[Rfam]
RNA sequence: AUGAUUGUGCUCAAAGCAUUGUCUCCGCAGACUAGGAUUCUUACCCUUUCCUACUUAAGCUUUGGGCACAAAAAC
Numbered sequence: 001a002u003g004a005u006u007g008u009g010c011u012c013a014a015a016g017c018a019u020u021g022u023c024u025c026c027g028c029a030g031a032c033u034a035g036g037a038u039u040c041u042u043a044c045c046c047u048u049u050c051c052u053a054c055u056u057a058a059g060c061u062u063u064g065g066g067c068a069c070a071a072a073a074a075c
Stems, first nucleotide, its partner, number of pairs: 006070010017059001033053005
Rfam assigns this 75-nucleotide RNA sequence to the family "potC RNA". Rfam's curators put it in the seed alignment. The family's RNA type in Rfam is cis-regulatory element. Pairs were carried over by alignment from the consensus structure, which is taken from published work.